Background: Shown here is a 102-nucleotide RNA from Clostridium liquoris, a member of the family "Purine riboswitch aptamer".
[Rfam]
RNA sequence: AGACAACUGAAUAUUCGCACUCAUAUAAGCUUAGUAAUAGGGCCUAAGCGUUUCUACCAGACAACCUUAAAUUGUCAGGCUAUGGGUGUUUACUUGGAUAUA
Numbered sequence: 001a002g003a004c005a006a007c008u009g010a011a012u013a014u015u016c017g018c019a020c021u022c023a024u025a026u027a028a029g030c031u032u033a034g035u036a037a038u039a040g041g042g043c044c045u046a047a048g049c050g051u052u053u054c055u056a057c058c059a060g061a062c063a064a065c066c067u068u069a070a071a072u073u074g075u076c077a078g079g080c081u082a083u084g085g086g087u088g089u090u091u092a093c094u095u096g097g098a099u100a101u102a
Stems, first nucleotide, its partner, number of pairs: 018088008029049006058078001060076005
Overview: A search with the family's covariance model found it, with a score of 78 bits. The base pairs follow the family's consensus structure, which is taken from published work.